[Rfam]
RNA sequence: AGGCAUAGUCACUUCGGUGUGAUCUCAAUCAGCCGCAUCAACUUUCUCCCCUGGGCUACAUCUCAGGGUCGAUGGAAGACGCCGACACAUCGUCCUUUCAUCCUCGCGAUGCCUGUACAACUUUCCUCCUUUCGGAGACGACAACGCGGUUUUUGUUGAUGUCUUUUGUCCGCUUUCAUUCAGCCCUGCCUUCUCAUCCCAUGAGAUGCGCAGAGGAAACAUAAAACUAAUCUCAGAA
Numbered sequence: 001a002g003g004c005a006u007a008g009u010c011a012c013u014u015c016g017g018u019g020u021g022a023u024c025u026c027a028a029u030c031a032g033c034c035g036c037a038u039c040a041a042c043u044u045u046c047u048c049c050c051c052u053g054g055g056c057u058a059c060a061u062c063u064c065a066g067g068g069u070c071g072a073u074g075g076a077a078g079a080c081g082c083c084g085a086c087a088c089a090u091c092g093u094c095c096u097u098u099c100a101u102c103c104u105c106g107c108g109a110u111g112c113c114u115g116u117a118c119a120a121c122u123u124u125c126c127u128c129c130u131u132u133c134g135g136a137g138a139c140g141a142c143a144a145c146g147c148g149g150u151u152u153u154u155g156u157u158g159a160u161g162u163c164u165u166u167u168g169u170c171c172g173c174u175u176u177c178a179u180u181c182a183g184c185c186c187u188g189c190c191u192u193c194u195c196a197u198c199c200c201a202u203g204a205g206a207u208g209c210g211c212a213g214a215g216g217a218a219a220c221a222u223a224a225a226a227c228u229a230a231u232c233u234c235a236g237a238a
Base pairs, nucleotide, nucleotide: 007043008042009041017038018037021030022029023028047141048140049137051135052134053133054132055131158232159231160230161227162226164225165224166223167221168220169219184216185215186213187212188211189210195208196207197206198205

This 238-nucleotide part of an RNA from Lachnellula cervina belongs to the Rfam family "Ascomycota telomerase RNA". Rfam links the family to the GO terms telomerase catalytic core complex, telomerase activity and telomere maintenance via telomerase. NCBI's taxonomy places the organism under Eukaryota, Fungi, leotiomyceta, Helotiales, Lachnellula. Its Rfam clan is "Telomerase clan".